RNA sequence: AAAAAGGGCUUCUGUCAUGAGUGGCCUAUGUAGGGCAACCAGACUGCUCUUCAUGCAAAAUUGACAUCAAGAGCUUUCAGAAGCAUAUUUCUUUUUUGGAAGUUGGGCAGCUGGUAAUCCUUGGUCUUGGCUCAUUA
Dot-bracket structure: .......(((((.((((....)))).((((.((((((.......)))))).))))..(((.(..........).)))..)))))....................(.(..(((((..(((...))).))))).).)..

Background:
The record is a 137-nucleotide RNA sequence from Papio anubis, which matches "U11 spliceosomal RNA" in Rfam. A search with the family's covariance model found it, with a score of 63 bits. NCBI's taxonomy places the organism under Eukaryota, Haplorrhini, Simiiformes, Cercopithecinae, Papio. Gene Ontology terms of the family: pre-mRNA 5'-splice site binding, mRNA 5'-splice site recognition and U11 snRNP. The family's consensus secondary structure is taken from published work. Rfam 15.1 lists 2,595 matches to the family in 1,202 species.